[Rfam]
Annotation: This 81-nucleotide RNA sequence from Trillium maculatum belongs to the Rfam family "Plastid-rpl20 3UTR RNA". Rfam classes the family as a cis-regulatory element. The literature on the family includes a 2023 paper in Plant Commun by Richter et al., "Retrograde signaling in plants: A critical review focusing on the GUN pathway and beyond". The sequence is in the family's curated seed alignment. Rfam 15.1 lists 587 matches to the family in 315 species. Plastid rpl20 is a non-coding RNA (ncRNA) recognised in plastids.
RNA sequence: ACAGAAUUCCCCGGAGAAUGAACUCCGGGAAAGAUAGAAAAAAAUGAAGAUAAGUAGUAGGAAUGAACGAACAUGUUUCAA
Numbered sequence: 001a002c003a004g005a006a007u008u009c010c011c012c013g014g015a016g017a018a019u020g021a022a023c024u025c026c027g028g029g030a031a032a033g034a035u036a037g038a039a040a041a042a043a044a045u046g047a048a049g050a051u052a053a054g055u056a057g058u059a060g061g062a063a064u065g066a067a068c069g070a071a072c073a074u075g076u077u078u079c080a081a
Stems, first nucleotide, its partner, number of pairs: 007032001008030001010029007065078004